[Rfam]
RNA sequence: GAAGACCUUAUUAAGCUUAACUCUAGUUUAAUAUUAUGAAAAGAUAUAGGAGGUAUAGAAUAGGUAGAAGCUUUAGCGCUAGUAAAAUACUACUACUCCUAUUGUUUUUUUACUUAUUUAAUAAAGUAGGGUUAGAUUUACGUCCAACUUCUAGUUUUAAGGUCUUUCGUAAGCUAACCUAAGUUAAAAACAUUAUUAAGUGGGGAGUUUAGCUAAGGCGGCAUAUCUAUUAAACUAUAACGUAGGUGUCCUAAGGGAGGCUUAUAGAGAAUAGAAAUCUUUAGUAGAACAAAAGGGUAAAAGUCCUCUUAAUUUUAAUUUUUAGUAUGAAUAUAAACUAUAAAAGUGUAGCCUAUUGAUCUUUUAGUCCUUUGAAAUUUAAGGCUAGAGGUGCUAGAAAAGUUACUAUAAGGAUUA
Numbered sequence: 001g002a003a004g005a006c007c008u009u010a011u012u013a014a015g016c017u018u019a020a021c022u023c024u025a026g027u028u029u030a031a032u033a034u035u036a037u038g039a040a041a042a043g044a045u046a047u048a049g050g051a052g053g054u055a056u057a058g059a060a061u062a063g064g065u066a067g068a069a070g071c072u073u074u075a076g077c078g079c080u081a082g083u084a085a086a087a088u089a090c091u092a093c094u095a096c097u098c099c100u101a102u103u104g105u106u107u108u109u110u111u112a113c114u115u116a117u118u119u120a121a122u123a124a125a126g127u128a129g130g131g132u133u134a135g136a137u138u139u140a141c142g143u144c145c146a147a148c149u150u151c152u153a154g155u156u157u158u159a160a161g162g163u164c165u166u167u168c169g170u171a172a173g174c175u176a177a178c179c180u181a182a183g184u185u186a187a188a189a190a191c192a193u194u195a196u197u198a199a200g201u202g203g204g205g206a207g208u209u210u211a212g213c214u215a216a217g218g219c220g221g222c223a224u225a226u227c228u229a230u231u232a233a234a235c236u237a238u239a240a241c242g243u244a245g246g247u248g249u250c251c252u253a254a255g256g257g258a259g260g261c262u263u264a265u266a267g268a269g270a271a272u273a274g275a276a277a278u279c280u281u282u283a284g285u286a287g288a289a290c291a292a293a294a295g296g297g298u299a300a301a302a303g304u305c306c307u308c309u310u311a312a313u314u315u316u317a318a319u320u321u322u323u324a325g326u327a328u329g330a331a332u333a334u335a336a337a338c339u340a341u342a343a344a345a346g347u348g349u350a351g352c353c354u355a356u357u358g359a360u361c362u363u364u365u366a367g368u369c370c371u372u373u374g375a376a377a378u379u380u381a382a383g384g385c386u387a388g389a390g391g392u393g394c395u396a397g398a399a400a401a402g403u404u405a406c407u408a409u410a411a412g413g414a415u416u417a
Stems, first nucleotide, its partner, number of pairs: 007412004012408002014404005020208004027200007037112009046102007063094005070077002117188005127181004135144002161175003165171001211224001212222003225247006250351001256308002259305003262288002265283006289298002313337003318332004339348003362390006370384004
RNA: Eukaryotic large subunit ribosomal RNA, nucleotides 2361 to 2777
Organism: Colletotrichum asianum